[Rfam]
RNA: Trypanosomatid snoRNA TB11Cs4H2
Organism: Trypanosoma cruzi
RNA sequence: AAGGUGCGUCUUGAGACCCACCGCCCCGUGACGCUGGGCGCUUGGGUGCAUCGGCGCCCCGAGA
Numbered sequence: 001a002a003g004g005u006g007c008g009u010c011u012u013g014a015g016a017c018c019c020a021c022c023g024c025c026c027c028g029u030g031a032c033g034c035u036g037g038g039c040g041c042u043u044g045g046g047u048g049c050a051u052c053g054g055c056g057c058c059c060c061g062a063g064a
Stems, first nucleotide, its partner, number of pairs: 003060002006057001008055001016047005022040005